[Rfam]
RNA sequence: AAGGUCUCAUACGCCACUGCUAUGGACUGGUUCAUCGCUGUCUGUUUUGCCUUC
Numbered sequence: 001a002a003g004g005u006c007u008c009a010u011a012c013g014c015c016a017c018u019g020c021u022a023u024g025g026a027c028u029g030g031u032u033c034a035u036c037g038c039u040g041u042c043u044g045u046u047u048u049g050c051c052u053u054c
Stems, first nucleotide, its partner, number of pairs: 002053002008049001011046001013045002016041002019038002022035005
RNA: Editing element of GABA-3 exon 9